[Rfam]
RNA sequence: CCACCGGGACGACCCGGCCGGGUGACUGAAUUUUCGCAGGACGACCUGC
Dot-bracket structure: (..(((((....)))))..)...............(((((....)))))
A member of the RNA family "Guanidine-II riboswitch aptamer (mini-ykkC)" from Parathalassolituus penaei, 49 nucleotides long. The literature on the family includes a 2007 paper in Nucleic Acids Res by Weinberg et al., "Identification of 22 candidate structured RNAs in bacteria using the CMfinder comparative genomics pipeline". The family's consensus secondary structure is taken from published work. The match comes from Rfam's covariance-model search (38 bits).